[Rfam]
RNA sequence: CUGAUUUUUGGCCUUCUCUUCCUGGUUCUUCCUGGAGUUGGGAAAAAUUGAGUUGGGAGGGCCAAAAAAUAAAUAA
Numbered sequence: 001c002u003g004a005u006u007u008u009u010g011g012c013c014u015u016c017u018c019u020u021c022c023u024g025g026u027u028c029u030u031c032c033u034g035g036a037g038u039u040g041g042g043a044a045a046a047a048u049u050g051a052g053u054u055g056g057g058a059g060g061g062c063c064a065a066a067a068a069a070u071a072a073a074u075a076a
Stems, first nucleotide, its partner, number of pairs: 014059005021052001023050003029044006

mir-320 microRNA precursor family: a 76-nucleotide RNA sequence from Saimiri boliviensis. The source organism's lineage runs through Eukaryota, Metazoa, Sarcopterygii, Euarchontoglires and Saimiri boliviensis. Gene Ontology terms of the family: miRNA-mediated post-transcriptional gene silencing, positive regulation of stem cell proliferation and long-term synaptic potentiation. A reference for the family is Berezikov et al. (2006), "Many novel mammalian microRNA candidates identified by extensive cloning and RAKE analysis", Genome Res. The base pairs follow the family's consensus structure, which was predicted with RNAalifold.